[Rfam]
RNA sequence: AAGAGCCCGAGUUAAUAGAAACUAAGGAUAUUGACUCAGAAAUUAA
Numbered sequence: 001a002a003g004a005g006c007c008c009g010a011g012u013u014a015a016u017a018g019a020a021a022c023u024a025a026g027g028a029u030a031u032u033g034a035c036u037c038a039g040a041a042a043u044u045a046a
Base pairs, nucleotide, nucleotide: 009037010036011035012034013033014032015031016030
Rfam assigns this 46-nucleotide sequence from Zostera marina to the family "Plastid-rpl16 group II-D1 intron". Rfam describes the family as follows. Plastid-rpl16 is a non-coding RNA (ncRNA) recognised in plastids. It was recognised in and intronic region of a ribosome rpl16 gene. Rfam 15.1 lists 1,446 matches to the family in 693 species. On this family, see Richter et al., Plant Commun 2023: "Retrograde signaling in plants: A critical review focusing on the GUN pathway and beyond".